[Rfam]
RNA sequence: UCUUCUUUGGCCGAGUGGUUCUCAACAGUUCAACAGUUCCUAUCAAAAUUGUGAAAUGUUCAGGACCACUUGAUCAGAU
Numbered sequence: 001u002c003u004u005c006u007u008u009g010g011c012c013g014a015g016u017g018g019u020u021c022u023c024a025a026c027a028g029u030u031c032a033a034c035a036g037u038u039c040c041u042a043u044c045a046a047a048a049u050u051g052u053g054a055a056a057u058g059u060u061c062a063g064g065a066c067c068a069c070u071u072g073a074u075c076a077g078a079u
Stems, first nucleotide, its partner, number of pairs: 014070006021063002024060004029055004
Dot-bracket structure: .............((((((.((.((((.((((...................)))).)))).)).)))))).........
Annotation: mir-203 microRNA precursor family: a 79-nucleotide RNA sequence from Triplophysa tibetana. Taxonomically the source falls in Triplophysa (Eukaryota, Euteleostomi, Actinopterygii, Cypriniphysae). The family's consensus secondary structure was predicted with RNAalifold. Its family is annotated with RISC complex and miRNA-mediated post-transcriptional gene silencing in the Gene Ontology. The match comes from Rfam's covariance-model search (85 bits). On this family, see Lim et al., Science 2003: "Vertebrate microRNA genes".